[Rfam]
RNA: MIR7486 microRNA precursor family
Organism: Gossypium lobatum
RNA sequence: CACGUAAGCGCACUUUGCUAACGUGGCAACAAAUCGCACCUUCUAGGAUGAGAUUUGCUGCCACGUCAGCAAAGCGCACUGACAUGG
Dot-bracket structure: ((.((.((.((.(((((((.(.((((((.((((((.((.((....)).)).)))))).)))))).).))))))).)).)).)).)).